This 99-nucleotide RNA sequence from Streptococcus pseudopneumoniae belongs to the Rfam family "Streptococcus sRNA SpF19". The sequence is in the family's curated seed alignment.
RNA sequence: AAAUAAAAGGAUGUUAUCACUAAUACAAGUGAGCAGGAACCUAUUUAAUCACAUCAGAAGAAGUUUCUUGAUGUUUUUAAGUAGGUUCCUUUUAUUUUA
Numbered sequence: 001a002a003a004u005a006a007a008a009g010g011a012u013g014u015u016a017u018c019a020c021u022a023a024u025a026c027a028a029g030u031g032a033g034c035a036g037g038a039a040c041c042u043a044u045u046u047a048a049u050c051a052c053a054u055c056a057g058a059a060g061a062a063g064u065u066u067c068u069u070g071a072u073g074u075u076u077u078u079a080a081g082u083a084g085g086u087u088c089c090u091u092u093u094a095u096u097u098u099a
Stems, first nucleotide, its partner, number of pairs: 001097007017032005035090014051074006057067004
It is annotated as a small RNA.